[Rfam]
RNA sequence: GACAGUUCUGGGGUGAAACACCCCAGAAUCAGGCUCCCUCCUCUCUGGUUCUGGGUGCAUCACCUGAGAACUGCC
Numbered sequence: 001g002a003c004a005g006u007u008c009u010g011g012g013g014u015g016a017a018a019c020a021c022c023c024c025a026g027a028a029u030c031a032g033g034c035u036c037c038c039u040c041c042u043c044u045c046u047g048g049u050u051c052u053g054g055g056u057g058c059a060u061c062a063c064c065u066g067a068g069a070a071c072u073g074c075c
Base pairs, nucleotide, nucleotide: 003073005071006070007069008068009067011065012064013063014062015061016060019057020056021055022054023053025052026051027050028049029048030047031046032045033044

Overview:
A member of the RNA family "mir-9223 microRNA precursor family" from Myotis lucifugus, 75 nucleotides long. Its family is annotated with RISC complex and miRNA-mediated post-transcriptional gene silencing in the Gene Ontology. A search with the family's covariance model found it, with a score of 78 bits.